[Rfam]
Rfam assigns this 102-nucleotide RNA sequence from Sorghum bicolor to the family "MIR5565 microRNA precursor family".
Rfam links the family to the GO terms miRNA-mediated post-transcriptional gene silencing and RISC complex.
The family's consensus secondary structure was predicted with RNAalifold.
The sequence is in the family's curated seed alignment.
RNA sequence: GAUUCACUUCAAUCCAUGUAUGUUGGUGUGGGUUGGGGUGGAAUUUAGUUCAAAUUCUACUCCAAUCCACCUCAACACAUGUGGAUUGAUGUAAAUCCGACU
Numbered sequence: 001g002a003u004u005c006a007c008u009u010c011a012a013u014c015c016a017u018g019u020a021u022g023u024u025g026g027u028g029u030g031g032g033u034u035g036g037g038g039u040g041g042a043a044u045u046u047a048g049u050u051c052a053a054a055u056u057c058u059a060c061u062c063c064a065a066u067c068c069a070c071c072u073c074a075a076c077a078c079a080u081g082u083g084g085a086u087u088g089a090u091g092u093a094a095a096u097c098c099g100a101c102u
Stems, first nucleotide, its partner, number of pairs: 001097004006092002009089011021077005028070009038060003